A member of the RNA family "mir-1986 microRNA precursor family" from Haliotis rufescens, 60 nucleotides long.
Rfam 15.1 lists 8 matches to the family in 8 species.
Lineage of the source: Eukaryota > Metazoa > Spiralia > Haliotidae > Haliotis.
It is one of the family's seed sequences.
RNA sequence: GGGCGCGGGUCGUGGGGGCGCCACAGUCUAUUUGACAGUGGAUUUCCCAAGAUCCGUGAU
Numbered sequence: 001g002g003g004c005g006c007g008g009g010u011c012g013u014g015g016g017g018g019c020g021c022c023a024c025a026g027u028c029u030a031u032u033u034g035a036c037a038g039u040g041g042a043u044u045u046c047c048c049a050a051g052a053u054c055c056g057u058g059a060u
Stems, first nucleotide, its partner, number of pairs: 004058008013049006021041004026036003